[Rfam]
RNA sequence: AUCGCUUCUCGGACUUUUGGUUAAGUUCAAGUGUAGUAUCUGUUCGUACCAGUUUAAUAUCUGAUACGUCCUCUGUCCGAGGACAUCAUAUUGCAUGCGUUUUUGGAGCAGGGAGAUGGAAUGGGAGCUUGCUCCGUCCACUCCACGCAUCGACCGGUACUGCAGUGCCUCCAGGAACGGUGCCGCAGAA
Numbered sequence: 001a002u003c004g005c006u007u008c009u010c011g012g013a014c015u016u017u018u019g020g021u022u023a024a025g026u027u028c029a030a031g032u033g034u035a036g037u038a039u040c041u042g043u044u045c046g047u048a049c050c051a052g053u054u055u056a057a058u059a060u061c062u063g064a065u066a067c068g069u070c071c072u073c074u075g076u077c078c079g080a081g082g083a084c085a086u087c088a089u090a091u092u093g094c095a096u097g098c099g100u101u102u103u104u105g106g107a108g109c110a111g112g113g114a115g116a117u118g119g120a121a122u123g124g125g126a127g128c129u130u131g132c133u134c135c136g137u138c139c140a141c142u143c144c145a146c147g148c149a150u151c152g153a154c155c156g157g158u159a160c161u162g163c164a165g166u167g168c169c170u171c172c173a174g175g176a177a178c179g180g181u182g183c184c185g186c187a188g189a190a
Stems, first nucleotide, its partner, number of pairs: 008025002011022002014019001047066002050063003068084006112144004118138002124135004147183006154175002156172002